[Rfam]
RNA: U5 spliceosomal RNA
Organism: Mesorhabditis belari
RNA sequence: CAUCUCUGGUUCAUCUGCAAUUGACCGAGAAAAUCUUUCGCCUUUUACUAAAGAUUUCCGUGCAGACGAACAAUUAUGAGUAUUACAAUUAUGAGUAUUACUCAAUUUUUGGUACUCCCUUGAAAAAGCGGGA
Numbered sequence: 001c002a003u004c005u006c007u008g009g010u011u012c013a014u015c016u017g018c019a020a021u022u023g024a025c026c027g028a029g030a031a032a033a034u035c036u037u038u039c040g041c042c043u044u045u046u047a048c049u050a051a052a053g054a055u056u057u058c059c060g061u062g063c064a065g066a067c068g069a070a071c072a073a074u075u076a077u078g079a080g081u082a083u084u085a086c087a088a089u090u091a092u093g094a095g096u097a098u099u100a101c102u103c104a105a106u107u108u109u110u111g112g113u114a115c116u117c118c119c120u121u122g123a124a125a126a127a128g129c130g131g132g133a
Base pairs, nucleotide, nucleotide: 004080005079006078009071010070011069012068014066015065016064017063018062019061031057032056033055034054035053036052037051038050116133117132118131119130